This 50-nucleotide RNA from Hyphomicrobium denitrificans belongs to the Rfam family "Guanidine-II riboswitch aptamer (mini-ykkC)". NCBI's taxonomy places the organism under Bacteria, Alphaproteobacteria, Hyphomicrobiales, Hyphomicrobium, Hyphomicrobium denitrificans. The base pairs follow the family's consensus structure, which is taken from published work. A search with the family's covariance model found it, with a score of 44 bits.
RNA sequence: CAGGGAGGACGACCUCCCGAUUUUCCACAUCAGCGACCGGGACGACCCGG
Numbered sequence: 001c002a003g004g005g006a007g008g009a010c011g012a013c014c015u016c017c018c019g020a021u022u023u024u025c026c027a028c029a030u031c032a033g034c035g036a037c038c039g040g041g042a043c044g045a046c047c048c049g050g
Stems, first nucleotide, its partner, number of pairs: 003018006037050005